The family of this 59-nucleotide sequence from Herminiimonas sp. is "Betaproteobacteria toxic small RNA". A search with the family's covariance model found it, with a score of 56 bits. On this family, see Kimelman et al., Genome Res 2012: "A vast collection of microbial genes that are toxic to bacteria". The base pairs follow the family's consensus structure, which was predicted with WAR. Rfam's curators write: Overexpression in amino aid rich medium attenuates growth, suggesting role in repressing amino acid intake and metabolism.

[Rfam]
RNA sequence: UGUCUCCUCUGUAUCUCAACGAUAUGGAUUUAGCCCGCCUCCUUGGCGGGCUUUUUUUU
Numbered sequence: 001u002g003u004c005u006c007c008u009c010u011g012u013a014u015c016u017c018a019a020c021g022a023u024a025u026g027g028a029u030u031u032a033g034c035c036c037g038c039c040u041c042c043u044u045g046g047c048g049g050g051c052u053u054u055u056u057u058u059u
Base pairs, nucleotide, nucleotide: 008028009027010026011025012024013023014022015021032052033051034050035049036048037047038046039045